[Rfam]
RNA sequence: AUGGGACGCUUCAAUACUGACAUGGUGCGAAGAGUCUAUUGAGCUAAUUGGUAGUCCUCCGGCCCCUGAAUGCGGCUAAUCCCAACUGCGGAGCAGAUGCCCGCACGCCAGCGGGUAUUCUGUCGUAAUGGGCAACUCUGCAGCGGAACCGACUACUUUGGGUGUCCGUGUUUCCUUUUAUUACUACAUUGGCUGCUUAUGGUGACAAUUGAGAGAUUGUUACCAUAUAGCUAUUGGAUUGGCCAUCCGGUA
Numbered sequence: 001a002u003g004g005g006a007c008g009c010u011u012c013a014a015u016a017c018u019g020a021c022a023u024g025g026u027g028c029g030a031a032g033a034g035u036c037u038a039u040u041g042a043g044c045u046a047a048u049u050g051g052u053a054g055u056c057c058u059c060c061g062g063c064c065c066c067u068g069a070a071u072g073c074g075g076c077u078a079a080u081c082c083c084a085a086c087u088g089c090g091g092a093g094c095a096g097a098u099g100c101c102c103g104c105a106c107g108c109c110a111g112c113g114g115g116u117a118u119u120c121u122g123u124c125g126u127a128a129u130g131g132g133c134a135a136c137u138c139u140g141c142a143g144c145g146g147a148a149c150c151g152a153c154u155a156c157u158u159u160g161g162g163u164g165u166c167c168g169u170g171u172u173u174c175c176u177u178u179u180a181u182u183a184c185u186a187c188a189u190u191g192g193c194u195g196c197u198u199a200u201g202g203u204g205a206c207a208a209u210u211g212a213g214a215g216a217u218u219g220u221u222a223c224c225a226u227a228u229a230g231c232u233a234u235u236g237g238a239u240u241g242g243c244c245a246u247c248c249g250g251u252a
Stems, first nucleotide, its partner, number of pairs: 004012003020026002034196002042194005051182001060168003064162003073151003080147003086143007094122004098117007123131003198227013